[Rfam]
RNA sequence: AUGGCUUCGCGCGACUGGCGAUCAGGAUCAUGACGCCCUGCUACAGGGCGAUGGUUUGAGGUGGUGGACCACCGGGGAGCGCGAACGGUUCAUGGAUUUGGUCCUGAACUGAAUUUGCCGUUCGCCUGGGCCGUCCUG
Numbered sequence: 001a002u003g004g005c006u007u008c009g010c011g012c013g014a015c016u017g018g019c020g021a022u023c024a025g026g027a028u029c030a031u032g033a034c035g036c037c038c039u040g041c042u043a044c045a046g047g048g049c050g051a052u053g054g055u056u057u058g059a060g061g062u063g064g065u066g067g068a069c070c071a072c073c074g075g076g077g078a079g080c081g082c083g084a085a086c087g088g089u090u091c092a093u094g095g096a097u098u099u100g101g102u103c104c105u106g107a108a109c110u111g112a113a114u115u116u117g118c119c120g121u122u123c124g125c126c127u128g129g130g131c132c133g134u135c136c137u138g
Stems, first nucleotide, its partner, number of pairs: 006085007015076002017126005061072004115133001117131003
Rfam assigns this 138-nucleotide RNA from Paucibacter sp. KCTC 42545 to the family "ZMP/ZTP riboswitch aptamer (pfl RNA motif)". A search with the family's covariance model found it, with a score of 48 bits. The base pairs follow the family's consensus structure, which is taken from published work. Lineage of the source: Bacteria > Pseudomonadota > Betaproteobacteria > Sphaerotilaceae > Roseateles.